[Rfam]
The record is a 45-nucleotide RNA sequence from Hoyosella subflava, which matches "L31-Actinobacteria ribosomal protein leader" in Rfam. Rfam's curators put it in the seed alignment.
RNA sequence: GAGGUACCGGUUCACGUCCAUCGUGGGAUGGGCGACCCGGCGACC
Numbered sequence: 001g002a003g004g005u006a007c008c009g010g011u012u013c014a015c016g017u018c019c020a021u022c023g024u025g026g027g028a029u030g031g032g033c034g035a036c037c038c039g040g041c042g043a044c045c
Base pairs, nucleotide, nucleotide: 003045004044005043007040008039009038010037015034016033017032018031019030020029021028022027
Pairs were carried over by alignment from the consensus structure, which is taken from published work.